[Rfam]
RNA sequence: GUCGUAAGUUAGAGGUCAUAGCAGAAGUGCUCAUGACCUGGGCCUGUCAGAUUCCAAUGAAUCUGCAAAUUUUGGU
Numbered sequence: 001g002u003c004g005u006a007a008g009u010u011a012g013a014g015g016u017c018a019u020a021g022c023a024g025a026a027g028u029g030c031u032c033a034u035g036a037c038c039u040g041g042g043c044c045u046g047u048c049a050g051a052u053u054c055c056a057a058u059g060a061a062u063c064u065g066c067a068a069a070u071u072u073u074g075g076u
Stems, first nucleotide, its partner, number of pairs: 014044001016041002020076001022074005027039001029037001048065007
Background:
Shown here is a 76-nucleotide sequence from Alligator mississippiensis, a member of the family "Mammalian CPEB3 ribozyme". Pairs were carried over by alignment from the consensus structure, which is taken from published work. Its family is annotated with RNA nuclease activity in the Gene Ontology. The source organism's lineage runs through Eukaryota, Gnathostomata, Sarcopterygii, Alligatoridae and Alligator.